Plastid-rpoB 5UTR RNA: a 49-nucleotide RNA from Vanilla planifolia. Rfam 15.1 lists 102 matches to the family in 69 species. Rfam's curators write: Plastid rpoB is a non-coding RNA (ncRNA) recognised in plastids. The organism belongs to Vanilla, within Eukaryota. It scores 52 bits against the family's covariance model.
RNA sequence: CUAUAUUGUUCCAAAUUCUUCUCUUUUUAUUUCAUUCAUGGAGUGCAAA
Numbered sequence: 001c002u003a004u005a006u007u008g009u010u011c012c013a014a015a016u017u018c019u020u021c022u023c024u025u026u027u028u029a030u031u032u033c034a035u036u037c038a039u040g041g042a043g044u045g046c047a048a049a
Stems, first nucleotide, its partner, number of pairs: 006048004011043001
Dot-bracket structure: .....((((.(...............................).)))).